Shown here is a 186-nucleotide RNA from Sciurus carolinensis, a member of the family "Beta-globin co-transcriptional cleavage ribozyme". Rfam's curators write: Transcription termination of RNA polymerase II transcripts is proposed to occur by a two stage process. The source organism's lineage runs through Eukaryota, Teleostomi, Rodentia, Sciuridae and Sciurus.
RNA sequence: CUUAAGUGUUACCACAAGUGACAUAUUCUAGCUUCAUUUCCUUAUUCAAUAUCCACUUAGGUAUAUGCUACAUUCUGGAAUUAUUAGUUUCAAGUGGUCUCUGUCCUCUCCUCCACUCCAAUUCUGAACCUAGCUGGCAAGUAGAAAGUAAUGUAUAUAUAUAAUAAGUGAUAAGUAGUUGUGGAA
Numbered sequence: 001c002u003u004a005a006g007u008g009u010u011a012c013c014a015c016a017a018g019u020g021a022c023a024u025a026u027u028c029u030a031g032c033u034u035c036a037u038u039u040c041c042u043u044a045u046u047c048a049a050u051a052u053c054c055a056c057u058u059a060g061g062u063a064u065a066u067g068c069u070a071c072a073u074u075c076u077g078g079a080a081u082u083a084u085u086a087g088u089u090u091c092a093a094g095u096g097g098u099c100u101c102u103g104u105c106c107u108c109u110c111c112u113c114c115a116c117u118c119c120a121a122u123u124c125u126g127a128a129c130c131u132a133g134c135u136g137g138c139a140a141g142u143a144g145a146a147a148g149u150a151a152u153g154u155a156u157a158u159a160u161a162u163a164a165u166a167a168g169u170g171a172u173a174a175g176u177a178g179u180u181g182u183g184g185a186a
Stems, first nucleotide, its partner, number of pairs: 022183004034174001036172003041168006050063004065156004072117001074115001077113002086109002091103002094100001122146005130141002